A member of the RNA family "Small nucleolar RNA SNORA73 family" from Oryctolagus cuniculus, 203 nucleotides long. By type it is an H/ACA-box small nucleolar RNA. U17 (SNORA73A and SNORA73B) also known as E1 belongs to the H/ACA class of small nucleolar RNAs (snoRNAs). Lineage of the source: Eukaryota > Tetrapoda > Boreoeutheria > Euarchontoglires > Oryctolagus. The base pairs follow the family's consensus structure, which is taken from published work. Rfam links the family to the GO terms nucleolus and RNA processing. The literature on the family includes a 1996 paper in RNA by Enright et al., "5'ETS rRNA processing facilitated by four small RNAs: U14, E3, U17, and U3".
RNA sequence: CCAACGUGGACACCCCGGGAGGUCACUCUCCCCGGGCUCUGUCCAGGUGGCACAGGGGAGCACAGGGCUCUGCCCGAUGACGUACAGUCCCUUCCCACGCCGUUGGAGAGGAAGCGGGCCUCGAGUCUGCGCCUGCAUAUUCCUACAGCUUCCCAGAGUCCUGUGGACAAUGACUGGGGAGACAAACCAUGCAGGAAACAGCU
Numbered sequence: 001c002c003a004a005c006g007u008g009g010a011c012a013c014c015c016c017g018g019g020a021g022g023u024c025a026c027u028c029u030c031c032c033c034g035g036g037c038u039c040u041g042u043c044c045a046g047g048u049g050g051c052a053c054a055g056g057g058g059a060g061c062a063c064a065g066g067g068c069u070c071u072g073c074c075c076g077a078u079g080a081c082g083u084a085c086a087g088u089c090c091c092u093u094c095c096c097a098c099g100c101c102g103u104u105g106g107a108g109a110g111g112a113a114g115c116g117g118g119c120c121u122c123g124a125g126u127c128u129g130c131g132c133c134u135g136c137a138u139a140u141u142c143c144u145a146c147a148g149c150u151u152c153c154c155a156g157a158g159u160c161c162u163g164u165g166g167a168c169a170a171u172g173a174c175u176g177g178g179g180a181g182a183c184a185a186a187c188c189a190u191g192c193a194g195g196a197a198a199c200a201g202c203u
Stems, first nucleotide, its partner, number of pairs: 001106006008044005014036003018029004047098004056091004060085001062083002065078001132195007149181006158168004